Notes:
MAT2A 3'UTR stem loop D: a 33-nucleotide RNA sequence from Pan troglodytes. A reference for the family is Parker et al. (2011), "New families of human regulatory RNA structures identified by comparative analysis of vertebrate genomes", Genome Res. The family's RNA type in Rfam is cis-regulatory element. NCBI's taxonomy places the organism under Eukaryota, Euteleostomi, Haplorrhini, Simiiformes, Pan.

[Rfam]
RNA sequence: UCUGGGGUAGGGUGGGGGUGCCUUCGCCUCAGA
Numbered sequence: 001u002c003u004g005g006g007g008u009a010g011g012g013u014g015g016g017g018g019u020g021c022c023u024u025c026g027c028c029u030c031a032g033a
Base pairs, nucleotide, nucleotide: 001033002032003031004030005029006028007027008026009024010023011022012021013020

Description: A search with the family's covariance model found it, with a score of 33 bits.